[Rfam]
Shown here is a 76-nucleotide RNA sequence from Burkholderiales bacterium LSUCC0115, a member of the family "Burkholderia RNA 7 (anti-hemB)". Its family is annotated with protein binding and bacterial biofilm matrix in the Gene Ontology. The family has 26 seed sequences and 479 matches in Rfam 15.1. From the family's description: This RNA motif was identified by computational search in b-proteobacteria Burkholderia. Co-purified with Hfq, expression confirmed by Northern blot. A search with the family's covariance model found it, with a score of 57 bits. The base pairs follow the family's consensus structure, which is taken from published work. The family's RNA type in Rfam is small RNA.
RNA sequence: UCUCCCGCUUCUCCUCCCUGAGCGGGUGCCUCCUCGAUAGGCCUCUUGUCCGGCAGCUGGUCUGCCGGUUUUUUUU
Numbered sequence: 001u002c003u004c005c006c007g008c009u010u011c012u013c014c015u016c017c018c019u020g021a022g023c024g025g026g027u028g029c030c031u032c033c034u035c036g037a038u039a040g041g042c043c044u045c046u047u048g049u050c051c052g053g054c055a056g057c058u059g060g061u062c063u064g065c066c067g068g069u070u071u072u073u074u075u076u
Base pairs, nucleotide, nucleotide: 004026005025006024007023008022009021028042029041030040031039050068051067052066053065054064055063056062